[Rfam]
RNA: 6S / SsrS RNA
Organism: Halioglobus sp. HI00S01
RNA sequence: AGAUCCCUGGCGUAUGCGCCAGGCAGACAGUCCUCGAGCCGAUAAAUUUGUAUCCGGGGGCUUCCAGCCACUGUUGGUGUGCAAGUCUGGCAUGACCGGAAAGCCUGAUUCAGUGCGGGGGCCUCCACCUUGAACCAUCGGGUUCAAGGGCAGCGCUGUCAGCGGUACGCCGGGAAUCUC
Numbered sequence: 001a002g003a004u005c006c007c008u009g010g011c012g013u014a015u016g017c018g019c020c021a022g023g024c025a026g027a028c029a030g031u032c033c034u035c036g037a038g039c040c041g042a043u044a045a046a047u048u049u050g051u052a053u054c055c056g057g058g059g060g061c062u063u064c065c066a067g068c069c070a071c072u073g074u075u076g077g078u079g080u081g082c083a084a085g086u087c088u089g090g091c092a093u094g095a096c097c098g099g100a101a102a103g104c105c106u107g108a109u110u111c112a113g114u115g116c117g118g119g120g121g122c123c124u125c126c127a128c129c130u131u132g133a134a135c136c137a138u139c140g141g142g143u144u145c146a147a148g149g150g151c152a153g154c155g156c157u158g159u160c161a162g163c164g165g166u167a168c169g170c171c172g173g174g175a176a177u178c179u180c
Base pairs, nucleotide, nucleotide: 002178003177004176006174007173008172009171010170011169012168013167014166015165017164018163019162030151031150032149033148036145037144038143039142040141056126057125058124060122061121062120063119064118065117067116069115070114071113072112073111081104082103086100087099088098089097090096